[Rfam]
RNA sequence: UUGAUAACGUUUUAACUAUUUAACUGUUUUGUCCCUCUCUUUCAUUGAACAAAUUGUUCUUUGACAGAGAGGAACAAAACAGUCCAAUAGCUAAAACGUUCAAUAAC
Numbered sequence: 001u002u003g004a005u006a007a008c009g010u011u012u013u014a015a016c017u018a019u020u021u022a023a024c025u026g027u028u029u030u031g032u033c034c035c036u037c038u039c040u041u042u043c044a045u046u047g048a049a050c051a052a053a054u055u056g057u058u059c060u061u062u063g064a065c066a067g068a069g070a071g072g073a074a075c076a077a078a079a080c081a082g083u084c085c086a087a088u089a090g091c092u093a094a095a096a097c098g099u100u101c102a103a104u105a106a107c
Stems, first nucleotide, its partner, number of pairs: 001103003010096005016090005023083005028068006048058004

This 107-nucleotide RNA from Plutella xylostella belongs to the Rfam family "mir-8517 microRNA precursor family". The base pairs follow the family's consensus structure, which was predicted with RNAalifold.